This 327-nucleotide RNA from Roseomonas mucosa belongs to the Rfam family "Alphaproteobacteria transfer-messenger RNA". The source organism's lineage runs through Bacteria, Pseudomonadota, Alphaproteobacteria, Roseomonadaceae and Roseomonas. A search with the family's covariance model found it, with a score of 224 bits. A reference for the family is Laslett et al. (2002), "BRUCE: a program for the detection of transfer-messenger RNA genes in nucleotide sequences", Nucleic Acids Res. Rfam classes the family as a non-coding RNA gene.
RNA sequence: CCCCUCGAUUUCCGUCACGGGAUCGCCUAUAUGGGUGUUGCUCACCUUCGGGUGGCUAUGGCGAUAAACGGCAGGUGGAAUAAGUGUUGCGGACCCGGGGGCAGUGCCCGGCGCCUCCACCAUUCGAUCCCCCGAGGUCGUUCGGGGCAGGAUGGGGGCGAAACAGGUUCGACGCGCAUGGUAAAGCCCUGUCUUUUGCCCGGCAUUGUACCGCCGUUAUCGGGCUAAUUCAUAAGUGCCAACGAUAACAGCCGCGAGGCUGUGGCGCUCGCUGCCUAAAUAGGUAAGCGCCGUCCGGGGGGAACGGGGCAACAGAAUCCCCCCACU
Dot-bracket structure: .......................................((.(((......)))))...(((((.....((((((.........(((.(((...(((((.......)))))(((((((...................................)))))))............)))))).........))))))..)))))((((.[.[..[[)))).....]].].]...............................................................[[[[..((((((.]]]]...........))))))...